[Rfam]
RNA: Mason-Pfizer monkey virus packaging signal
Organism: Piliocolobus tephrosceles
RNA sequence: UGGCGCCUAGAACAGGGACCUGGACACGGGGAAAAAGUGAGGAAGAAGGCACUAAAGUCGGCCGAAAUUAAAAGUAGAAGAAAACUCCUCCGGACGCCGUGGGAGCCUGCCGCGUCGGAACCAGAGGUGAGUGACAGUGUCUGAUUAUGGGACAAGAAUUAAGCCAGCAUCAAAUUUAUGUAGGGCAAUUAAAAGAGGCUUUAAAAACACAAGGAGUAAGGUUAAAAGUAAUGAUUUAUUUAAAUUUUUUGAUUUUGUAAAGGAUACCUGCCCUU
Numbered sequence: 001u002g003g004c005g006c007c008u009a010g011a012a013c014a015g016g017g018a019c020c021u022g023g024a025c026a027c028g029g030g031g032a033a034a035a036a037g038u039g040a041g042g043a044a045g046a047a048g049g050c051a052c053u054a055a056a057g058u059c060g061g062c063c064g065a066a067a068u069u070a071a072a073a074g075u076a077g078a079a080g081a082a083a084a085c086u087c088c089u090c091c092g093g094a095c096g097c098c099g100u101g102g103g104a105g106c107c108u109g110c111c112g113c114g115u116c117g118g119a120a121c122c123a124g125a126g127g128u129g130a131g132u133g134a135c136a137g138u139g140u141c142u143g144a145u146u147a148u149g150g151g152a153c154a155a156g157a158a159u160u161a162a163g164c165c166a167g168c169a170u171c172a173a174a175u176u177u178a179u180g181u182a183g184g185g186c187a188a189u190u191a192a193a194a195g196a197g198g199c200u201u202u203a204a205a206a207a208c209a210c211a212a213g214g215a216g217u218a219a220g221g222u223u224a225a226a227a228g229u230a231a232u233g234a235u236u237u238a239u240u241u242a243a244a245u246u247u248u249u250u251g252a253u254u255u256u257g258u259a260a261a262g263g264a265u266a267c268c269u270g271c272c273c274u275u
Base pairs, nucleotide, nucleotide: 006030007029008028016025038046085129087127089124095117098114099113100112101111102110137153138152140151141150142149143148160203161202162201163199164198165197210251211250212249213248214247215246216245217244219237220236221235222234223233224232260275261274262273263272265270
Dot-bracket structure: .....(((.......(........)..))).......(.......)......................................(.(.(.....(..(((((.......)))))..)......)..).).......((.((((....))))))......((((((...............................))).)))......((((((((.((((((.......))))))......))))))))........((((.(....).))))